[Rfam]
RNA sequence: CGAAUAGCAUAGCCGAAUUUCCGAAGGAAAUCGGGGGAACCAUAAAGUUGUCGGAAUCGCUCAGCCUGCUAUAGCCAGCAGCGCUUUUGAUCCGGCGGCAUGGGGUGAAUUUCUACGGUGAAGCUUAAUCUUCAUCGAUCGAAUAGGGCUGCCUGUCCAGGCCCGAAUCCGUCAGCUAACCUCGAAGGCGUUAAUGGAACAGAAC
Numbered sequence: 001c002g003a004a005u006a007g008c009a010u011a012g013c014c015g016a017a018u019u020u021c022c023g024a025a026g027g028a029a030a031u032c033g034g035g036g037g038a039a040c041c042a043u044a045a046a047g048u049u050g051u052c053g054g055a056a057u058c059g060c061u062c063a064g065c066c067u068g069c070u071a072u073a074g075c076c077a078g079c080a081g082c083g084c085u086u087u088u089g090a091u092c093c094g095g096c097g098g099c100a101u102g103g104g105g106u107g108a109a110u111u112u113c114u115a116c117g118g119u120g121a122a123g124c125u126u127a128a129u130c131u132u133c134a135u136c137g138a139u140c141g142a143a144u145a146g147g148g149c150u151g152c153c154u155g156u157c158c159a160g161g162c163c164c165g166a167a168u169c170c171g172u173c174a175g176c177u178a179a180c181c182u183c184g185a186a187g188g189c190g191u192u193a194a195u196g197g198a199a200c201a202g203a204a205c
Stems, first nucleotide, its partner, number of pairs: 012189003018030003031185006041102002103170003111143003146164004
RNA: c-di-AMP riboswitch aptamer (ydaO/yuaA leader)